ZMP/ZTP riboswitch aptamer (pfl RNA motif): an 89-nucleotide RNA sequence.
Its family is annotated with regulation of purine nucleotide biosynthetic process and one-carbon metabolic process in the Gene Ontology.
The base pairs follow the family's consensus structure, which is taken from published work.
RNA sequence: GUGCCGGGUCGUGACUGGCGCUUGGGUGGAGUACCACCGGGGAGCGGCCCGGCGGACCGACGCCACUGCCGCGCGCCUGGGCGAUCCAC
Numbered sequence: 001g002u003g004c005c006g007g008g009u010c011g012u013g014a015c016u017g018g019c020g021c022u023u024g025g026g027u028g029g030a031g032u033a034c035c036a037c038c039g040g041g042g043a044g045c046g047g048c049c050c051g052g053c054g055g056a057c058c059g060a061c062g063c064c065a066c067u068g069c070c071g072c073g074c075g076c077c078u079g080g081g082c083g084a085u086c087c088a089c
Stems, first nucleotide, its partner, number of pairs: 003053010015041002017077005026037004067083004